[Rfam]
RNA sequence: UUUCUGCUUUGAUGAAUUAUGAAUCUAUCACAUGUCAGACUUCAGAGGUUCUUUUGAACCAAUGAGAUCAAAAUUCAUAAAUCUGAGCACAUA
Numbered sequence: 001u002u003u004c005u006g007c008u009u010u011g012a013u014g015a016a017u018u019a020u021g022a023a024u025c026u027a028u029c030a031c032a033u034g035u036c037a038g039a040c041u042u043c044a045g046a047g048g049u050u051c052u053u054u055u056g057a058a059c060c061a062a063u064g065a066g067a068u069c070a071a072a073a074u075u076c077a078u079a080a081a082u083c084u085g086a087g088c089a090c091a092u093a
Stems, first nucleotide, its partner, number of pairs: 001093001003091001005089003047060004
This 93-nucleotide RNA sequence from Artemisia annua belongs to the Rfam family "Small nucleolar RNA R64/Z200 family". NCBI's taxonomy places the organism under Eukaryota, Streptophyta, Embryophyta, asterids, Artemisia. A search with the family's covariance model found it, with a score of 75 bits. The family has 14 seed sequences and 748 matches in Rfam 15.1.